RNA sequence: AGCGGAAGGAAGCUCACUGUAGAGGUCACAUGCUGAGUGCCUAGUCACUCUACCAAUCACCUCGGGGAAGGUCUGAGAAAAGAGCCAAUGGCUGCCCUAGCAGGGCAUCACCUGACAUGGGUGAGCGAGCGCACAGAAAACACGGGUUACGACGAGUUCCUUAGCAGGAGAAGCCGUACGGUACAAUGAAGGUACUGUUCGGUGGAUGCGGUCUCGCUAACUUGGAAACACUCGCGGCUGGCGAAUGAGUGCGAUGUGUGAGCUGGGGACACGCCUCCAGAACCCAAUUCAGACUACUCUCCUUCCACU
Numbered sequence: 001a002g003c004g005g006a007a008g009g010a011a012g013c014u015c016a017c018u019g020u021a022g023a024g025g026u027c028a029c030a031u032g033c034u035g036a037g038u039g040c041c042u043a044g045u046c047a048c049u050c051u052a053c054c055a056a057u058c059a060c061c062u063c064g065g066g067g068a069a070g071g072u073c074u075g076a077g078a079a080a081a082g083a084g085c086c087a088a089u090g091g092c093u094g095c096c097c098u099a100g101c102a103g104g105g106c107a108u109c110a111c112c113u114g115a116c117a118u119g120g121g122u123g124a125g126c127g128a129g130c131g132c133a134c135a136g137a138a139a140a141c142a143c144g145g146g147u148u149a150c151g152a153c154g155a156g157u158u159c160c161u162u163a164g165c166a167g168g169a170g171a172a173g174c175c176g177u178a179c180g181g182u183a184c185a186a187u188g189a190a191g192g193u194a195c196u197g198u199u200c201g202g203u204g205g206a207u208g209c210g211g212u213c214u215c216g217c218u219a220a221c222u223u224g225g226a227a228a229c230a231c232u233c234g235c236g237g238c239u240g241g242c243g244a245a246u247g248a249g250u251g252c253g254a255u256g257u258g259u260g261a262g263c264u265g266g267g268g269a270c271a272c273g274c275c276u277c278c279a280g281a282a283c284c285c286a287a288u289u290c291a292g293a294c295u296a297c298u299c300u301c302c303u304u305c306c307a308c309u
Stems, first nucleotide, its partner, number of pairs: 001309002004306001008302003013262005022063004035050005040044001073292005083239004093107005108124006125235005131229001146221003263280006
The family of this 309-nucleotide RNA from Scleropages formosus is "Nuclear RNase P". The family's RNA type in Rfam is ribozyme. The family's consensus secondary structure is taken from published work.